RNA sequence: UAAGCAGUGCGGGACUGACGGAUUUAAAGUGGAAUUAACCACGUGAACCGCAAAGCUAAAGAAAAGUCGACCGUCUGGGCAAAGAAA
Numbered sequence: 001u002a003a004g005c006a007g008u009g010c011g012g013g014a015c016u017g018a019c020g021g022a023u024u025u026a027a028a029g030u031g032g033a034a035u036u037a038a039c040c041a042c043g044u045g046a047a048c049c050g051c052a053a054a055g056c057u058a059a060a061g062a063a064a065a066g067u068c069g070a071c072c073g074u075c076u077g078g079g080c081a082a083a084g085a086a087a
Stems, first nucleotide, its partner, number of pairs: 003057003008052005015045001017075005029042004066080003
Dot-bracket structure: ..(((..(((((..(.[[[[[.......((((......))))..)..)))))..)))........(((..]]]]]..))).......

Shown here is an 87-nucleotide RNA sequence from Megamonas hypermegale, a member of the family "ZMP/ZTP riboswitch aptamer (pfl RNA motif)".
A search with the family's covariance model found it, with a score of 57 bits.
Lineage of the source: Bacteria > Bacillati > Bacillota > Selenomonadaceae > Megamonas.
The family's consensus secondary structure is taken from published work.